Overview: A member of the RNA family "mir-8934 microRNA precursor family" from Equus caballus, 88 nucleotides long. The family's consensus secondary structure was predicted with RNAalifold.

[Rfam]
RNA sequence: GGUGGCUCGGGGGGCCCCUGGAGGCCUCUGUACCCCACUUGAGAAAGGGUGGCAGUGGGGCAGCAGGCUUGGGGCCCCCAGGGCUCCA
Numbered sequence: 001g002g003u004g005g006c007u008c009g010g011g012g013g014g015c016c017c018c019u020g021g022a023g024g025c026c027u028c029u030g031u032a033c034c035c036c037a038c039u040u041g042a043g044a045a046a047g048g049g050u051g052g053c054a055g056u057g058g059g060g061c062a063g064c065a066g067g068c069u070u071g072g073g074g075c076c077c078c079c080a081g082g083g084c085u086c087c088a
Base pairs, nucleotide, nucleotide: 002087004085005084006083007082008081010079011078012077013076014075015074016073017072018071022070023069024068025067026066027065028063029062030061033060034059035058036057037056038055039054040052042050